[Rfam]
RNA sequence: UGCUACCAAACACCAUCUCCACCUCCACGUGGUGAUCGCUGGGAGUUAUUUCUUUAUGAAAAACUGCAGACGGAGAAGG
Numbered sequence: 001u002g003c004u005a006c007c008a009a010a011c012a013c014c015a016u017c018u019c020c021a022c023c024u025c026c027a028c029g030u031g032g033u034g035a036u037c038g039c040u041g042g043g044a045g046u047u048a049u050u051u052c053u054u055u056a057u058g059a060a061a062a063a064c065u066g067c068a069g070a071c072g073g074a075g076a077a078g079g
Base pairs, nucleotide, nucleotide: 013079014078016076017075018074019073020072021033022032023031045065047063049061050060051059053058

The record is a 79-nucleotide RNA from Hermetia illucens, which matches "drz-agam-1 ribozyme" in Rfam. The family's consensus secondary structure is taken from published work. It scores 37 bits against the family's covariance model. On this family, see Webb et al., Science 2009: "Widespread occurrence of self-cleaving ribozymes". The family has 7 seed sequences and 10,507 matches in Rfam 15.1.